[Rfam]
RNA sequence: AAAUAUUUGCAGGGGGACACGAAAGUGUUGAGAAGGUUUAAGCCUGACCCUUAGAACCUGACAGUUAAUACUGGCGUAGGGAGCAAAGUACAUAUGAUC
Numbered sequence: 001a002a003a004u005a006u007u008u009g010c011a012g013g014g015g016g017a018c019a020c021g022a023a024a025g026u027g028u029u030g031a032g033a034a035g036g037u038u039u040a041a042g043c044c045u046g047a048c049c050c051u052u053a054g055a056a057c058c059u060g061a062c063a064g065u066u067a068a069u070a071c072u073g074g075c076g077u078a079g080g081g082a083g084c085a086a087a088g089u090a091c092a093u094a095u096g097a098u099c
Base pairs, nucleotide, nucleotide: 006087007086008085009084010083011051012050013049014048016045017028018027019026020025035044036043037042057080058079059078060077062073063072064071